[Rfam]
RNA: mir-223 microRNA precursor family
RNA sequence: AGCAGCGAGUGCAGUGCCGCGCUGCGUGUAUUUGACAAGCUGAGUCCGACACUCAGUGUGAGAGUGUCAGUUUGUCAAAUACCCCAAGCGAGGCACCUGCUGAG
Dot-bracket structure: ...................((((..(.((((((((((((((......((((.((.......)).)))))))))))))))))).)..))))..............
Numbered sequence: 001a002g003c004a005g006c007g008a009g010u011g012c013a014g015u016g017c018c019g020c021g022c023u024g025c026g027u028g029u030a031u032u033u034g035a036c037a038a039g040c041u042g043a044g045u046c047c048g049a050c051a052c053u054c055a056g057u058g059u060g061a062g063a064g065u066g067u068c069a070g071u072u073u074g075u076c077a078a079a080u081a082c083c084c085c086a087a088g089c090g091a092g093g094c095a096c097c098u099g100c101u102g103a104g
Stems, first nucleotide, its partner, number of pairs: 020090004026084001028082014048068004053063002